This 67-nucleotide sequence from Buphagus erythrorhynchus belongs to the Rfam family "mir-103/107 microRNA precursor family". Pairs were carried over by alignment from the consensus structure, which was predicted with RNAalifold.
[Rfam]
RNA sequence: UUGUGCUUUCAGCUUCUUUACAGUGCUGCCUUGUUGCAUUCAUGUCAAGCAGCAUUGUACAGGGCUA
Number, nucleotide and partner (000 for none) at each position: 001u000002u000003g000004u000005g000006c000007u000008u000009u000010c000011a000012g000013c000014u064015u063016c062017u061018u000019u059020a058021c057022a056023g055024u054025g053026c052027u051028g050029c000030c049031u048032u047033g046034u000035u000036g000037c000038a000039u000040u000041c000042a000043u000044g000045u000046c033047a032048a031049g030050c028051a027052g026053c025054a024055u023056u022057g021058u020059a019060c000061a017062g016063g015064g014065c000066u000067a000

Description: This family consists of the mammalian microRNA (miRNA) precursors mir-103 and mir107. Animal miRNAs are transcribed as ~70nt precursors and subsequently processed by the Dicer enzyme to give a ~22nt product. In this case the mature sequence comes from the 3' arm of the precursor. The extents of the hairpin precursors are not generally known and are estimated based on hairpin prediction. Rfam links the family to the GO terms miRNA-mediated post-transcriptional gene silencing and RISC complex.